[Rfam]
RNA sequence: UUUCCCACUGAAUGCCACAUUUUCUCCUAAUAGAAUUGUGGCUAUGCCUGUGGGAUAGAUGAAAGGUGCCAUGAUCUGAGGAGGGAGGGUUUUUCAGUGUCCUCCCUUUACAUGAAAUGGCUGAACAAAAAUAG
Numbered sequence: 001u002u003u004c005c006c007a008c009u010g011a012a013u014g015c016c017a018c019a020u021u022u023u024c025u026c027c028u029a030a031u032a033g034a035a036u037u038g039u040g041g042c043u044a045u046g047c048c049u050g051u052g053g054g055a056u057a058g059a060u061g062a063a064a065g066g067u068g069c070c071a072u073g074a075u076c077u078g079a080g081g082a083g084g085g086a087g088g089g090u091u092u093u094u095c096a097g098u099g100u101c102c103u104c105c106c107u108u109u110a111c112a113u114g115a116a117a118u119g120g121c122u123g124a125a126c127a128a129a130a131a132u133a134g
Stems, first nucleotide, its partner, number of pairs: 004054004015041004068121004086109004